Shown here is a 101-nucleotide RNA sequence from Crypturellus soui, a member of the family "Small nucleolar RNA SNORD16". Clan: SNORD16 clan. For this family Rfam cites "A novel small nucleolar RNA (U16) is encoded inside a ribosomal protein intron and originates by processing of the pre-mRNA" (Fragapane et al., EMBO J, 1993). Gene Ontology terms of the family: nucleolus and RNA processing. Taxonomically the source falls in Crypturellus (Eukaryota, Bilateria, Gnathostomata, Sauropsida).

[Rfam]
RNA sequence: UGCGGUGAUGUUGUAAUUUGCGUCUUACUCUGUGCUCAGUGACAGUUGCCUGCUGUCAGCAUACUGGUACAGGUGAUUGACGAGCAGCUAAAUGCUGAGCA
Numbered sequence: 001u002g003c004g005g006u007g008a009u010g011u012u013g014u015a016a017u018u019u020g021c022g023u024c025u026u027a028c029u030c031u032g033u034g035c036u037c038a039g040u041g042a043c044a045g046u047u048g049c050c051u052g053c054u055g056u057c058a059g060c061a062u063a064c065u066g067g068u069a070c071a072g073g074u075g076a077u078u079g080a081c082g083a084g085c086a087g088c089u090a091a092a093u094g095c096u097g098a099g100c101a
Base pairs, nucleotide, nucleotide: 001101002100003099021082022081023080024079030072031071032070033069034068039064040063041057042056043055044054045053
Dot-bracket structure: (((.................((((.....(((((....(((((((.......))))).....))...)))))......))))................)))